The family of this 116-nucleotide RNA sequence from Papaver nudicaule is "Small nucleolar RNA snoR100". On this family, see Marker et al., Curr Biol 2002: "Experimental RNomics: identification of 140 candidates for small non-messenger RNAs in the plant Arabidopsis thaliana". By type it is an H/ACA-box small nucleolar RNA. Lineage of the source: Eukaryota > Embryophyta > Euphyllophyta > Ranunculales > Papaver.

RNA sequence: UAAAGAGGGAAGCAUGGUUUUGUGUACAGAAAUCAAUCUUGGUAUCUGGUACAUAUGUCUGCUUGCUCUGAUGCAUCUGGCUCUGAUUUUGCGUGCCUGGAAACACACCUACAUUU
Numbered sequence: 001u002a003a004a005g006a007g008g009g010a011a012g013c014a015u016g017g018u019u020u021u022g023u024g025u026a027c028a029g030a031a032a033u034c035a036a037u038c039u040u041g042g043u044a045u046c047u048g049g050u051a052c053a054u055a056u057g058u059c060u061g062c063u064u065g066c067u068c069u070g071a072u073g074c075a076u077c078u079g080g081c082u083c084u085g086a087u088u089u090u091g092c093g094u095g096c097c098u099g100g101a102a103a104c105a106c107a108c109c110u111a112c113a114u115u116u
Base pairs, nucleotide, nucleotide: 012025013024014023015022048097049096050095051094057087058086059085061081062080063079